[Rfam]
RNA sequence: CCCAAGCCCGGGCUCUUUCCACUGAGCCACGCUGCUUGUCAUUGUACCCCUGCAGCGUGGCUCAGUGGAAAGAGCGCGGGCUUUGGA
Numbered sequence: 001c002c003c004a005a006g007c008c009c010g011g012g013c014u015c016u017u018u019c020c021a022c023u024g025a026g027c028c029a030c031g032c033u034g035c036u037u038g039u040c041a042u043u044g045u046a047c048c049c050c051u052g053c054a055g056c057g058u059g060g061c062u063c064a065g066u067g068g069a070a071a072g073a074g075c076g077c078g079g080g081c082u083u084u085g086g087a
Base pairs, nucleotide, nucleotide: 002086003085005082006081007080008079009078010077012075013074014073015072016071017070018069019068022065023064024063025062026061027060028059029058030057031056032055
A member of the RNA family "mir-130 microRNA precursor family" from Ornithorhynchus anatinus, 87 nucleotides long. Gene Ontology terms of the family: RISC complex and miRNA-mediated post-transcriptional gene silencing. The literature on the family includes a 2002 paper in Curr Biol by Lagos-Quintana et al., "Identification of tissue-specific microRNAs from mouse". A search with the family's covariance model found it, with a score of 48 bits.